Shown here is a 157-nucleotide RNA sequence from Gluconacetobacter takamatsuzukensis, a member of the family "6S / SsrS RNA". It is annotated as a non-coding RNA gene. The source organism's lineage runs through Bacteria, Pseudomonadati, Alphaproteobacteria, Acetobacteraceae and Gluconacetobacter. A search with the family's covariance model found it, with a score of 78 bits. The base pairs follow the family's consensus structure, which is taken from published work.
RNA sequence: GCGGGGCUGCCGGGCUCGUCAGGCAACUCAACCCCUGGGCCGAUAAGCACUUCCUUAGGGAGCUGGCUCUGGCAUGAUCCUGGUCAUGUUAUCUGGCGCCCACCUGCGUGAGCAGGUCCGGGAGGGCUGAAAGACCAACGGUCAUGGCGGCUCCGCA
Numbered sequence: 001g002c003g004g005g006g007c008u009g010c011c012g013g014g015c016u017c018g019u020c021a022g023g024c025a026a027c028u029c030a031a032c033c034c035c036u037g038g039g040c041c042g043a044u045a046a047g048c049a050c051u052u053c054c055u056u057a058g059g060g061a062g063c064u065g066g067c068u069c070u071g072g073c074a075u076g077a078u079c080c081u082g083g084u085c086a087u088g089u090u091a092u093c094u095g096g097c098g099c100c101c102a103c104c105u106g107c108g109u110g111a112g113c114a115g116g117u118c119c120g121g122g123a124g125g126g127c128u129g130a131a132a133g134a135c136c137a138a139c140g141g142u143c144a145u146g147g148c149g150g151c152u153c154c155g156c157a
Stems, first nucleotide, its partner, number of pairs: 002155010013143003017140003032126003035122001036120006058101003062097005071090007
Dot-bracket structure: .((((((((((.(((.(((............((((((((((................(((.(((((....(((((((......)))))))..))))).))).............)))))).).)))...........))))))..))))))))))..